RNA sequence: ACUGGAGGACCAAGAAGGUUGAGUCUGAGGAAGGAAGACAUCGCUGAUAUACUUCUCCUAAAUAAAAGAGUUGGUGAGAACAGCUCUCAUUGGAGAAAAUCUCAGGGCUGAGUGUUCGGCCCAUUGUAC
Numbered sequence: 001a002c003u004g005g006a007g008g009a010c011c012a013a014g015a016a017g018g019u020u021g022a023g024u025c026u027g028a029g030g031a032a033g034g035a036a037g038a039c040a041u042c043g044c045u046g047a048u049a050u051a052c053u054u055c056u057c058c059u060a061a062a063u064a065a066a067a068g069a070g071u072u073g074g075u076g077a078g079a080a081c082a083g084c085u086c087u088c089a090u091u092g093g094a095g096a097a098a099a100u101c102u103c104a105g106g107g108c109u110g111a112g113u114g115u116u117c118g119g120c121c122c123a124u125u126g127u128a129c
Stems, first nucleotide, its partner, number of pairs: 003060001004058006017045003021041001023039004068122001070120002079113001081110007092101002
Description:
This 129-nucleotide sequence from Dipodomys ordii belongs to the Rfam family "Small Cajal body specific RNA 4". From the family's description: scaRNAs are a specific class of small nuclear RNAs which localise to the Cajal bodies and guide the modification of RNA polymerase II transcribed spliceosomal RNAs U1, U2, U4, U5 and U12. ACA26 belongs to the H/ACA box class of guide RNAs as it has the predicted hairpin-hinge-hairpin-tail structure, conserved H/ACA-box motifs and is found associated with GAR1. Gene Ontology terms of the family: RNA processing, nucleolus and Cajal body. Rfam classes the family as a small Cajal body RNA. The match comes from Rfam's covariance-model search (95 bits). A reference for the family is Darzacq et al. (2002), "Cajal body-specific small nuclear RNAs: a novel class of 2'-O-methylation and pseudouridylation guide RNAs", EMBO J.